[Rfam]
RNA sequence: UAGUGUUAUAGCUCUAAGAAUUUGUCUACCAGGUUUUCUGCUCAUCACUGGAAAUGCCCCC
Numbered sequence: 001u002a003g004u005g006u007u008a009u010a011g012c013u014c015u016a017a018g019a020a021u022u023u024g025u026c027u028a029c030c031a032g033g034u035u036u037u038c039u040g041c042u043c044a045u046c047a048c049u050g051g052a053a054a055u056g057c058c059c060c061c
Stems, first nucleotide, its partner, number of pairs: 032058003035054006042047001
Rfam assigns this 61-nucleotide sequence from Rhinopithecus roxellana to the family "U7 small nuclear RNA".
It scores 43 bits against the family's covariance model.
Animal histone pre-mRNAs are spliced by a different mechanism than nuclear pre-mRNAs and self-splicing introns. This processing involves the U7 snRNP, which contains only one RNA species: U7.
Lineage of the source: Eukaryota > Deuterostomia > Simiiformes > Colobinae > Rhinopithecus.
The family's consensus secondary structure was predicted with PFOLD.